[Rfam]
RNA sequence: AACAACACUACCAAUGAAUGGAUUCACCCGUGAUAUGACAUGGUUGUUCCACUUAGGACAAGGACGUGGCAUCCUAUUACCAGCCAUCACACAAAAUUAAUAGGAUGCAAUGUCCCUAUCCUAGGUGGAACAACCACGUCAUCUCACAGAUGAAUCUAUUCAUUGAUAGUGUGGUU
Numbered sequence: 001a002a003c004a005a006c007a008c009u010a011c012c013a014a015u016g017a018a019u020g021g022a023u024u025c026a027c028c029c030g031u032g033a034u035a036u037g038a039c040a041u042g043g044u045u046g047u048u049c050c051a052c053u054u055a056g057g058a059c060a061a062g063g064a065c066g067u068g069g070c071a072u073c074c075u076a077u078u079a080c081c082a083g084c085c086a087u088c089a090c091a092c093a094a095a096a097u098u099a100a101u102a103g104g105a106u107g108c109a110a111u112g113u114c115c116c117u118a119u120c121c122u123a124g125g126u127g128g129a130a131c132a133a134c135c136a137c138g139u140c141a142u143c144u145c146a147c148a149g150a151u152g153a154a155u156c157u158a159u160u161c162a163u164u165g166a167u168a169g170u171g172u173g174g175u176u
Stems, first nucleotide, its partner, number of pairs: 001176003005172003009168002012165004017160003021156006028149001030147004035142005041136008051126002054123002057120002063114003069108011086097002

The family of this 176-nucleotide RNA sequence from Oryza barthii is "MIR807 microRNA precursor family". A reference for the family is Luo et al. (2006), "Rice embryogenic calli express a unique set of microRNAs, suggesting regulatory roles of microRNAs in plant post-embryogenic development", FEBS Lett. A search with the family's covariance model found it, with a score of 194 bits.